[Rfam]
The family of this 504-nucleotide part of an RNA from Cyclospora cayetanensis is "Eukaryotic large subunit ribosomal RNA". The organism belongs to Cyclospora, within Eukaryota. For this family Rfam cites "Crystal structure of the ribosome at 5.5 A resolution" (Yusupov et al., Science, 2001).

RNA sequence: UCUUCCGAAGUUUCUCUCAGGAUAGCUGGAGUUCAAUUAGUUUUAUCAGGUAAAGCGAAUGAUUAGAGGCCUCGGGGGCGCAUCGCCCUCGACCUAUUCUCAAACUUUAAAUGGGUAAGAUCCAGUGGUUGCUUCGUUGAACUGCUGGGGUUAAUAUGAACUCCAAGUGGGCCAUUUUUGGUAAGCAGAACUGGCGAUGAGGGAUGCUCCUAACGCUUGGUUAAGGUGCCCAAAUACUCGCUCAUCAGAUACCAUGAAAGGUGUUGGUUCAUUUUGACAGCAGGACGGUGGUCAUGGAAGUCGAAACCCGCUAAGGAGUGUGUAACAACUCACCUGCCGAAUGAACCAGCCCUGAAAAUGGAUGGCGCUGCAGCGAGUUACCGAUACCAGGCCAUCACCGCAAGUGUGCGAGCACUGGACUUUGCGCGGUGAUGAGUAGGAAGACGUGGGGAUCGUGAAGAAGCGUUUGGCGUAAGCCUGCGUGGAACGGUCUCUAGUGCAGAU
Numbered sequence: 001u002c003u004u005c006c007g008a009a010g011u012u013u014c015u016c017u018c019a020g021g022a023u024a025g026c027u028g029g030a031g032u033u034c035a036a037u038u039a040g041u042u043u044u045a046u047c048a049g050g051u052a053a054a055g056c057g058a059a060u061g062a063u064u065a066g067a068g069g070c071c072u073c074g075g076g077g078g079c080g081c082a083u084c085g086c087c088c089u090c091g092a093c094c095u096a097u098u099c100u101c102a103a104a105c106u107u108u109a110a111a112u113g114g115g116u117a118a119g120a121u122c123c124a125g126u127g128g129u130u131g132c133u134u135c136g137u138u139g140a141a142c143u144g145c146u147g148g149g150g151u152u153a154a155u156a157u158g159a160a161c162u163c164c165a166a167g168u169g170g171g172c173c174a175u176u177u178u179u180g181g182u183a184a185g186c187a188g189a190a191c192u193g194g195c196g197a198u199g200a201g202g203g204a205u206g207c208u209c210c211u212a213a214c215g216c217u218u219g220g221u222u223a224a225g226g227u228g229c230c231c232a233a234a235u236a237c238u239c240g241c242u243c244a245u246c247a248g249a250u251a252c253c254a255u256g257a258a259a260g261g262u263g264u265u266g267g268u269u270c271a272u273u274u275u276g277a278c279a280g281c282a283g284g285a286c287g288g289u290g291g292u293c294a295u296g297g298a299a300g301u302c303g304a305a306a307c308c309c310g311c312u313a314a315g316g317a318g319u320g321u322g323u324a325a326c327a328a329c330u331c332a333c334c335u336g337c338c339g340a341a342u343g344a345a346c347c348a349g350c351c352c353u354g355a356a357a358a359u360g361g362a363u364g365g366c367g368c369u370g371c372a373g374c375g376a377g378u379u380a381c382c383g384a385u386a387c388c389a390g391g392c393c394a395u396c397a398c399c400g401c402a403a404g405u406g407u408g409c410g411a412g413c414a415c416u417g418g419a420c421u422u423u424g425c426g427c428g429g430u431g432a433u434g435a436g437u438a439g440g441a442a443g444a445c446g447u448g449g450g451g452a453u454c455g456u457g458a459a460g461a462a463g464c465g466u467u468u469g470g471c472g473u474a475a476g477c478c479u480g481c482g483u484g485g486a487a488c489g490g491u492c493u494c495u496a497g498u499g500c501a502g503a504u
Base pairs, nucleotide, nucleotide: 001444002443003442004441005440006439011024013022014021015020027165028164029163030162031161032160033159041120042119043118044117045116046115047114053108054106055105060102061101062100065097067095068094069093072092073091074090075089076088077087079085122148123147124146125145126144127143128142129141130140171195172194173193174192176190177189178188179187180186200211201210202209215392216391217390218389219388221386225382226381227380234379236378239375240374241373259353260352261351263350264349265348266347267346268345269344270343271342272341280337281336282335283334284333286310287309288308292304293303311315316331320329321328393434394433395432396431397430398429399428400427401426445499447496448495449494450493451492452491453490454489455488456487463483464482469478470477471476